Rfam assigns this 98-nucleotide RNA from Labedella populi to the family "mraW RNA". The family's consensus secondary structure is taken from published work. Lineage of the source: Bacteria > Bacillati > Actinomycetota > Microbacteriaceae > Labedella. It is annotated as a cis-regulatory element.
RNA sequence: UCUAGCACCUGUGGUCCGACUCCCAGCCGUCGGCCCUGACUCCACUUCCCCGGAGCCAGGUCAAACGGAUGGGGAUCAGACCACAGGAGCCCGGCCCG
Numbered sequence: 001u002c003u004a005g006c007a008c009c010u011g012u013g014g015u016c017c018g019a020c021u022c023c024c025a026g027c028c029g030u031c032g033g034c035c036c037u038g039a040c041u042c043c044a045c046u047u048c049c050c051c052g053g054a055g056c057c058a059g060g061u062c063a064a065a066c067g068g069a070u071g072g073g074g075a076u077c078a079g080a081c082c083a084c085a086g087g088a089g090c091c092c093g094g095c096c097c098g
Stems, first nucleotide, its partner, number of pairs: 010085007018077002021074005027068004033062001035060004040055003